[Rfam]
RNA sequence: UUGCGGUGCAUUGUAGUUGCAUUGCAUGUUCGUUGCAUACAGUGCAGUGCUUCUUCAGUGCAAUCGCAA
Numbered sequence: 001u002u003g004c005g006g007u008g009c010a011u012u013g014u015a016g017u018u019g020c021a022u023u024g025c026a027u028g029u030u031c032g033u034u035g036c037a038u039a040c041a042g043u044g045c046a047g048u049g050c051u052u053c054u055u056c057a058g059u060g061c062a063a064u065c066g067c068a069a
Stems, first nucleotide, its partner, number of pairs: 001069004006065001007062007015054002019050001021048007

Shown here is a 69-nucleotide RNA from Rhipicephalus microplus, a member of the family "mir-33 microRNA precursor family". Its family is annotated with gene silencing by miRNA and RISC complex in the Gene Ontology. NCBI's taxonomy places the organism under Eukaryota, Acari, Ixodida, Rhipicephalinae, Boophilus. A reference for the family is Ahn et al. (2010), "MicroRNA transcriptome in the newborn mouse ovaries determined by massive parallel sequencing", Mol Hum Reprod.